[Rfam]
RNA sequence: CCUGUCGUUUUCCCGGCAGUAGCCUAAGAGGGCAGGCGUAGCUGGUAACGGCUGGGUCUGAAGCCCCUCUGACAAUGUAGCCCAUUCCGAAAGGAUUAAGCUGAAGCCGUGAGGUGGAUGUGUAACUGCGAGCAUUACGUGGUAGGGAAC
Numbered sequence: 001c002c003u004g005u006c007g008u009u010u011u012c013c014c015g016g017c018a019g020u021a022g023c024c025u026a027a028g029a030g031g032g033c034a035g036g037c038g039u040a041g042c043u044g045g046u047a048a049c050g051g052c053u054g055g056g057u058c059u060g061a062a063g064c065c066c067c068u069c070u071g072a073c074a075a076u077g078u079a080g081c082c083c084a085u086u087c088c089g090a091a092a093g094g095a096u097u098a099a100g101c102u103g104a105a106g107c108c109g110u111g112a113g114g115u116g117g118a119u120g121u122g123u124a125a126c127u128g129c130g131a132g133c134a135u136u137a138c139g140u141g142g143u144a145g146g147g148a149a150c
Base pairs, nucleotide, nucleotide: 002019003018004017005016006015007014028069029068030067031066032065033060034059035058036057037056039054040053041052042051043050044049084097086095087094088093099121107114108113125143126142127141128140129139130138

Rfam assigns this 150-nucleotide RNA sequence from Gallionella capsiferriformans to the family "Group II catalytic intron D1-D4-7". The family has 244 seed sequences and 1,296 matches in Rfam 15.1. The organism belongs to Gallionella capsiferriformans, within Bacteria. A reference for the family is Lehmann and Schmidt (2003), "Group II introns: structure and catalytic versatility of large natural ribozymes", Crit Rev Biochem Mol Biol. Rfam describes the family as follows. Group II introns are found in rRNA, tRNA and mRNA of organelles in fungi, plants and protists, and also in mRNA in bacteria. The pairing is the family consensus, mapped onto this sequence.